[Rfam]
RNA: Pseudomonas sRNA P26
RNA sequence: AUUUGGCAGAUUGCUUGCCUGAAAAGGCUUGGGCUGGUGAUUAUUUGAUCACCAGCCU
Numbered sequence: 001a002u003u004u005g006g007c008a009g010a011u012u013g014c015u016u017g018c019c020u021g022a023a024a025a026g027g028c029u030u031g032g033g034c035u036g037g038u039g040a041u042u043a044u045u046u047g048a049u050c051a052c053c054a055g056c057c058u
Stems, first nucleotide, its partner, number of pairs: 008029002011026001032057010